[Rfam]
RNA: raiA RNA
RNA sequence: UGCAUACGAGUCUGUGGUUGAAAGUCGAUGCCAGACGCAGGCAAAACGAUCCACGUAAGCAAGUGAAUGACUUGUGAGCAUGGUGCGUCUUAGAUGUAAGUCCUGCCGGAAUAACCGAGAGGAGCAGUAGUGGGGAGCAAUAGACUUAUGAGCGAACCUCCCAGCAGGCGAGUGUGGGGUCAAAAACCAGGUCAGUCGUAUAGA
Numbered sequence: 001u002g003c004a005u006a007c008g009a010g011u012c013u014g015u016g017g018u019u020g021a022a023a024g025u026c027g028a029u030g031c032c033a034g035a036c037g038c039a040g041g042c043a044a045a046a047c048g049a050u051c052c053a054c055g056u057a058a059g060c061a062a063g064u065g066a067a068u069g070a071c072u073u074g075u076g077a078g079c080a081u082g083g084u085g086c087g088u089c090u091u092a093g094a095u096g097u098a099a100g101u102c103c104u105g106c107c108g109g110a111a112u113a114a115c116c117g118a119g120a121g122g123a124g125c126a127g128u129a130g131u132g133g134g135g136a137g138c139a140a141u142a143g144a145c146u147u148a149u150g151a152g153c154g155a156a157c158c159u160c161c162c163a164g165c166a167g168g169c170g171a172g173u174g175u176g177g178g179g180u181c182a183a184a185a186a187c188c189a190g191g192u193c194a195g196u197c198g199u200a201u202a203g204a
Base pairs, nucleotide, nucleotide: 001204004201005200006199007198008197009196012195013194014193015189016188017187018186019185028175029174030173031041033090034089035088036087037086038085039084050083051082058075061073062072063071064070081182102168103167104166105165106164107117108116109115121161122160123159124158130153131152136146137145